[Rfam]
About this RNA
The family of this 104-nucleotide sequence from Bacillus sp. V5-8f is "SAM riboswitch aptamer (S box leader)". A search with the family's covariance model found it, with a score of 85 bits. The source organism's lineage runs through Bacteria, Bacilli, Caryophanales, Bacillaceae and Bacillus. The family's consensus secondary structure is taken from published work.
RNA sequence: AACUUAUCAAGAGAGGCGGAGGGACUGGCCCUUUGAAGCCCGGCAACCGGUAAUGACAUACACGGUGCUAAUUCCAGCAGAGUAAUGGCUCUGGCAGAUAAGGA
Dot-bracket structure: ..((((((....(.(((...(((.[[[[)))......))))((((.(((.((......)))..))))))...(]]]]((((((....))))))..)))))))..